This 74-nucleotide RNA sequence from Hipposideros armiger belongs to the Rfam family "Small nucleolar RNA SNORD113/SNORD114 family". Its family is annotated with nucleolus and RNA processing in the Gene Ontology. For this family Rfam cites "Identification of tandemly-repeated C/D snoRNA genes at the imprinted human 14q32 domain reminiscent of those at the Prader-Willi/Angelman syndrome region" (Cavaille et al., Hum Mol Genet, 2002).
RNA sequence: UGGACCAAUGGUGCGACUGGUGGUGUAUGAGUUAUGAACGAUGAAUACUAUGUGUCUGGAACUCUGAGGUCCAA
Number, nucleotide and partner (000 for none) at each position: 001u000002g072003g071004a070005c069006c068007a000008a000009u000010g000011g000012u000013g000014c000015g000016a000017c000018u000019g000020g000021u000022g000023g000024u000025g000026u000027a000028u000029g000030a000031g000032u000033u000034a000035u000036g000037a000038a000039c000040g000041a000042u000043g000044a000045a000046u000047a000048c000049u000050a000051u000052g000053u000054g000055u000056c000057u000058g000059g000060a000061a000062c000063u000064c000065u000066g000067a000068g006069g005070u004071c003072c002073a000074a000

Rfam describes the family as follows. The imprinted human domain at 14q32 contains two clusters of tandemly repeated small nucleolar RNAs named 14q(I) and 14q(II) snoRNAs. The base pairs follow the family's consensus structure, which is taken from published work. Rfam 15.1 lists 5,721 matches to the family in 142 species.